Description
This 99-nucleotide sequence from Clostridium amylolyticum belongs to the Rfam family "TPP riboswitch aptamer (THI element)". The match comes from Rfam's covariance-model search (74 bits). The source organism's lineage runs through Bacteria, Bacillati, Clostridia, Clostridiaceae and Clostridium.
RNA sequence: GAUGUGCACUAGGGGAGCCAUUAUGGCUGAGAUGAAAUUUUCAGACCCUUUGAACCUGCACUGGAUAAUGCCAGCGAAGGGAAGUUGUAAGAUAAUACA
Numbered sequence: 001g002a003u004g005u006g007c008a009c010u011a012g013g014g015g016a017g018c019c020a021u022u023a024u025g026g027c028u029g030a031g032a033u034g035a036a037a038u039u040u041u042c043a044g045a046c047c048c049u050u051u052g053a054a055c056c057u058g059c060a061c062u063g064g065a066u067a068a069u070g071c072c073a074g075c076g077a078a079g080g081g082a083a084g085u086u087g088u089a090a091g092a093u094a095a096u097a098c099a
Stems, first nucleotide, its partner, number of pairs: 008085003011049004017027004034042003055080003061074004